[Rfam]
RNA sequence: GGGGACCUCAGGGGCCCUACACACAUAGACAGCCGGGCCCAUACCCGGCGCGACCCAAAGAGCGGACCUCUGGUCCGACGCAAAACGGAAGACAGAAA
Numbered sequence: 001g002g003g004g005a006c007c008u009c010a011g012g013g014g015c016c017c018u019a020c021a022c023a024c025a026u027a028g029a030c031a032g033c034c035g036g037g038c039c040c041a042u043a044c045c046c047g048g049c050g051c052g053a054c055c056c057a058a059a060g061a062g063c064g065g066a067c068c069u070c071u072g073g074u075c076c077g078a079c080g081c082a083a084a085a086c087g088g089a090a091g092a093c094a095g096a097a098a
Base pairs, nucleotide, nucleotide: 001018002017003016004015006014007013008012032079034077035076036075037074038073
The family of this 98-nucleotide sequence is "L2-Alphaproteobacteria ribosomal protein leader". For this family Rfam cites "Discovery of 20 novel ribosomal leader candidates in bacteria and archaea" (Eckert and Weinberg, BMC Microbiol, 2020). It is annotated as a cis-regulatory leader.